[Rfam]
RNA sequence: UAUGUCCGAGGAUAGAGGAAGUCGGGGCAACCCGGCUGGGCGUGAAAUUCUCC
Numbered sequence: 001u002a003u004g005u006c007c008g009a010g011g012a013u014a015g016a017g018g019a020a021g022u023c024g025g026g027g028c029a030a031c032c033c034g035g036c037u038g039g040g041c042g043u044g045a046a047a048u049u050c051u052c053c
Stems, first nucleotide, its partner, number of pairs: 020037007
RNA: leuA-Halobacteria RNA
Organism: Haloterrigena salina